[Rfam]
Ruegeria cis2 sRNA: a 151-nucleotide sequence from Dinoroseobacter shibae. Gene Ontology term of the family: regulation of gene expression. Lineage of the source: Bacteria > Pseudomonadati > Pseudomonadota > Rhodobacterales > Dinoroseobacter shibae. Pairs were carried over by alignment from the consensus structure, which was predicted with RNAfold. For this family Rfam cites "Experimental Identification of Small Non-Coding RNAs in the Model Marine Bacterium Ruegeria pomeroyi DSS-3" (Rivers et al., Front Microbiol, 2016). The family's RNA type in Rfam is small RNA.

RNA sequence: CGUGUUGCGGGGCAGGUAGUUGACGAAUACCGCGCCGCGCAUCUGGUCGAUCAGGUGGAACAGCGGGUUCCAGGCAAAAAGCGGCAGCAUGAAGGCAGGCAGGGUAUUGGCCACGAACAUCUUGCCGCUGGCGAACAUGUUGAUCCGGCUG
Numbered sequence: 001c002g003u004g005u006u007g008c009g010g011g012g013c014a015g016g017u018a019g020u021u022g023a024c025g026a027a028u029a030c031c032g033c034g035c036c037g038c039g040c041a042u043c044u045g046g047u048c049g050a051u052c053a054g055g056u057g058g059a060a061c062a063g064c065g066g067g068u069u070c071c072a073g074g075c076a077a078a079a080a081g082c083g084g085c086a087g088c089a090u091g092a093a094g095g096c097a098g099g100c101a102g103g104g105u106a107u108u109g110g111c112c113a114c115g116a117a118c119a120u121c122u123u124g125c126c127g128c129u130g131g132c133g134a135a136c137a138u139g140u141u142g143a144u145c146c147g148g149c150u151g
Stems, first nucleotide, its partner, number of pairs: 001032002003029004011021002035054001037052001038049002061151004065146001068078002083144001085142007096130001099126001100124006107116003